This 118-nucleotide sequence belongs to the Rfam family "Group II catalytic intron D1-D4-2". The pairing is the family consensus, mapped onto this sequence. A reference for the family is Bonen and Vogel (2001), "The ins and outs of group II introns", Trends Genet. Rfam 15.1 lists 1,231 matches to the family in 625 species. Rfam's curators put it in the seed alignment. Group II introns are found in rRNA, tRNA and mRNA of organelles in fungi, plants and protists, and also in mRNA in bacteria.
[Rfam]
Nucleotides: 118
Stems, first nucleotide, its partner, number of pairs: 001015005016041006023034004046117001048091006054080002057077002060074005096114006
Number, partner (000 for none) and nucleotide at each position: 001015g002014a003013g004012g005011g006000c007000a008000g009000g010000c011005c012004c013003c014002u015001c016041g017040a018039a019038g020037c021036c022000g023034c024033c025032a026031u027000a028000c029000a030000g031026g032025u033024g034023g035000a036021g037020g038019c039018u040017u041016c042000a043000a044000a045000c046117c047000a048091c049090c050089g051088u052087a053086a054080g055079c056000u057077g058076c059000g060074c061073c062072g063071g064070u065000a066000u067000a068000g069000a070064g071063c072062u073061g074060g075000u076058g077057u078000g079055g080054u081000g082000a083000g084000c085000g086053u087052u088051a089050c090049g091048g092000a093000a094000a095000a096114g097113g098112u099111c100110u101109c102000g103000c104000c105000a106000g107000a108000c109101g110100g111099g112098a113097u114096c115000a116000g117046g118000u